The family of this 101-nucleotide RNA from Carlito syrichta is "Y RNA".
RNA sequence: GGCUUGUCCAAGUGCAGUUGUGUUUACAAUAAUUUAUCACAACCAGUUACAGAUUUCUUUGUUUCCCCUUCACUCUCAUGGCUUCUCUUGACUAGCCUUAG
Numbered sequence: 001g002g003c004u005u006g007u008c009c010a011a012g013u014g015c016a017g018u019u020g021u022g023u024u025u026a027c028a029a030u031a032a033u034u035u036a037u038c039a040c041a042a043c044c045a046g047u048u049a050c051a052g053a054u055u056u057c058u059u060u061g062u063u064u065c066c067c068c069u070u071c072a073c074u075c076u077c078a079u080g081g082c083u084u085c086u087c088u089u090g091a092c093u094a095g096c097c098u099u100a101g
Stems, first nucleotide, its partner, number of pairs: 001097004006092003010089002014085001017079002020076001022075001028063003032059001
The source organism's lineage runs through Eukaryota, Metazoa, Craniata, Euarchontoglires and Carlito. The family's RNA type in Rfam is non-coding RNA gene. For this family Rfam cites "Conserved features of Y RNAs: a comparison of experimentally derived secondary structures" (Teunissen et al., Nucleic Acids Res, 2000). The family's consensus secondary structure is taken from published work.